Description
Lysine riboswitch aptamer: a 179-nucleotide sequence from Vibrio azureus.
[Rfam]
RNA sequence: UCAUGCAGAAGAGGAGCACUACCCAGGCAGGUGAUUGGUGGAACCGCAAUUCCUAUACCAAGCACUCAUGGGGAGUAGUGCCGAGGUGAGUCAAAUUUGCAGGAUUUGACUUGUCGGUUGACUUGGGUUGAAUCCCAUCAAUUGUCAUCAGCGCAGCCUGAUGAAGAGCUUCUGAGAGU
Numbered sequence: 001u002c003a004u005g006c007a008g009a010a011g012a013g014g015a016g017c018a019c020u021a022c023c024c025a026g027g028c029a030g031g032u033g034a035u036u037g038g039u040g041g042a043a044c045c046g047c048a049a050u051u052c053c054u055a056u057a058c059c060a061a062g063c064a065c066u067c068a069u070g071g072g073g074a075g076u077a078g079u080g081c082c083g084a085g086g087u088g089a090g091u092c093a094a095a096u097u098u099g100c101a102g103g104a105u106u107u108g109a110c111u112u113g114u115c116g117g118u119u120g121a122c123u124u125g126g127g128u129u130g131a132a133u134c135c136c137a138u139c140a141a142u143u144g145u146c147a148u149c150a151g152c153g154c155a156g157c158c159u160g161a162u163g164a165a166g167a168g169c170u171u172c173u174g175a176g177a178g179u
Base pairs, nucleotide, nucleotide: 006174007173008172009171010170011169016081017080018079019078020077021076022075024073030066031065032064033063035061036060037059085115086114087113088112089111090110091109092108093107094106095105096104116143117142118141119140120139121138124137125136126135127134145164146163147162148161149160150159151158

NCBI's taxonomy places the organism under Bacteria, Pseudomonadati, Pseudomonadota, Vibrio, Vibrio azureus.